The family of this 229-nucleotide sequence is "RT-2 RNA". Pairs were carried over by alignment from the consensus structure, which is taken from published work. It is annotated as a small RNA. It is one of the family's seed sequences.
RNA sequence: CGAGGUCAAAUGGAGUAACAGAAACCCGGCUUUUGGAUUUCAGGUGAAAGACGACCUUCGCAAAAGGAGAGAUACUUCCUUGGGUAGCCAAUCCCUAAAACUGCCCUUUGAUGCCCUUACACGGACGCUUCUUGCAUGGUGGGGGAUCGUGCCAUAUCCCAUUUCAUGUGCAAGGGCAAAGCAGAUUAGACGGCACCCUACAAUUUAUCUGUACGAAAGGCGAAUACUU
Numbered sequence: 001c002g003a004g005g006u007c008a009a010a011u012g013g014a015g016u017a018a019c020a021g022a023a024a025c026c027c028g029g030c031u032u033u034u035g036g037a038u039u040u041c042a043g044g045u046g047a048a049a050g051a052c053g054a055c056c057u058u059c060g061c062a063a064a065a066g067g068a069g070a071g072a073u074a075c076u077u078c079c080u081u082g083g084g085u086a087g088c089c090a091a092u093c094c095c096u097a098a099a100a101c102u103g104c105c106c107u108u109u110g111a112u113g114c115c116c117u118u119a120c121a122c123g124g125a126c127g128c129u130u131c132u133u134g135c136a137u138g139g140u141g142g143g144g145g146a147u148c149g150u151g152c153c154a155u156a157u158c159c160c161a162u163u164u165c166a167u168g169u170g171c172a173a174g175g176g177c178a179a180a181g182c183a184g185a186u187u188a189g190a191c192g193g194c195a196c197c198c199u200a201c202a203a204u205u206u207a208u209c210u211g212u213a214c215g216a217a218a219g220g221c222g223a224a225u226a227c228u229u
Stems, first nucleotide, its partner, number of pairs: 004056004019044001082095003103221003107217004112213001113177006120170003127135002138163007181212005187207001188199002